The family of this 175-nucleotide sequence is "Group II catalytic intron D1-D4-3".
RNA sequence: AUGAUCGUGAGGUCAUGGCUGGAGGAAGCUCAAGGCGAAAUCGCGGGGCGAUGAACAAGAACCGGAUAUGAGGUGUGAUCUAGGCGGGGCCAGCGGGCACGUGACUGUUAAGCCCUCCAUCUGCAACGGGCCUAGGUUUUAUAAAUCCGGCGUCUACGCGAGGAAAGUUAAGUGU
Numbered sequence: 001a002u003g004a005u006c007g008u009g010a011g012g013u014c015a016u017g018g019c020u021g022g023a024g025g026a027a028g029c030u031c032a033a034g035g036c037g038a039a040a041u042c043g044c045g046g047g048g049c050g051a052u053g054a055a056c057a058a059g060a061a062c063c064g065g066a067u068a069u070g071a072g073g074u075g076u077g078a079u080c081u082a083g084g085c086g087g088g089g090c091c092a093g094c095g096g097g098c099a100c101g102u103g104a105c106u107g108u109u110a111a112g113c114c115c116u117c118c119a120u121c122u123g124c125a126a127c128g129g130g131c132c133u134a135g136g137u138u139u140u141a142u143a144a145a146u147c148c149g150g151c152g153u154c155u156a157c158g159c160g161a162g163g164a165a166a167g168u169u170a171a172g173u174g175u
Stems, first nucleotide, its partner, number of pairs: 001016006028175002031172001035168002041161005046155005062150006073142003077138001079136006087115004093108004
About this RNA: The base pairs follow the family's consensus structure. Group II introns are found in rRNA, tRNA and mRNA of organelles in fungi, plants and protists, and also in mRNA in bacteria. A reference for the family is Chu et al. (2001), "Control of branch-site choice by a group II intron", EMBO J.